[Rfam]
Nucleotides: 082
Base pairs, nucleotide, nucleotide: 001082002081003080004079005076006075008073009072
Number, partner (000 for none) and nucleotide at each position: 001082g002081g003080g004079u005076c006075a007000a008073u009072g010000a011000u012000g013000a014000g015000a016000a017000c018000u019000u020000u021000a022000u023000a024000u025000u026000g027000u028000c029000u030000a031000g032000a033000g034000g035000a036000g037000a038000g039000a040000u041000g042000a043000u044000g045000a046000c047000u048000u049000g050000a051000a052000a053000a054000u055000c056000a057000u058000g059000c060000u061000c062000a063000a064000u065000a066000g067000g068000a069000u070000u071000a072009u073008a074000c075006u076005g077000u078000g079004g080003c081002c082001c
The record is an 82-nucleotide sequence from Carlito syrichta, which matches "Small nucleolar RNA SNORD115" in Rfam. Pairs were carried over by alignment from the consensus structure, which was predicted with PFOLD. Rfam 15.1 lists 3,387 matches to the family in 131 species. The literature on the family includes a 2000 paper in Proc Natl Acad Sci U S A by Cavaille et al., "Identification of brain-specific and imprinted small nucleolar RNA genes exhibiting an unusual genomic organization". The organism belongs to Carlito, within Eukaryota.